[Rfam]
RNA sequence: UCCAUCGUGAGGUGGAAUGCGAAGGAAGCCUGAGGUAAAGUCUCGGUCUGAAGGAAAUAAACUCACUAGGAACGAACGAGUUUGCUACACAAAACAAAGUCCAACACUAUCCAAAUUCUUAGGAGUAAAUGUAGCAGAUAUGUGAGAUGGAUGUUGUUGUU
Numbered sequence: 001u002c003c004a005u006c007g008u009g010a011g012g013u014g015g016a017a018u019g020c021g022a023a024g025g026a027a028g029c030c031u032g033a034g035g036u037a038a039a040g041u042c043u044c045g046g047u048c049u050g051a052a053g054g055a056a057a058u059a060a061a062c063u064c065a066c067u068a069g070g071a072a073c074g075a076a077c078g079a080g081u082u083u084g085c086u087a088c089a090c091a092a093a094a095c096a097a098a099g100u101c102c103a104a105c106a107c108u109a110u111c112c113a114a115a116u117u118c119u120u121a122g123g124a125g126u127a128a129a130u131g132u133a134g135c136a137g138a139u140a141u142g143u144g145a146g147a148u149g150g151a152u153g154u155u156g157u158u159g160u161u
Stems, first nucleotide, its partner, number of pairs: 001016006028161001030159001032157001035154002040148006046139005062134001064125001066122007074102001076100002080095004
RNA: Group II catalytic intron D1-D4-3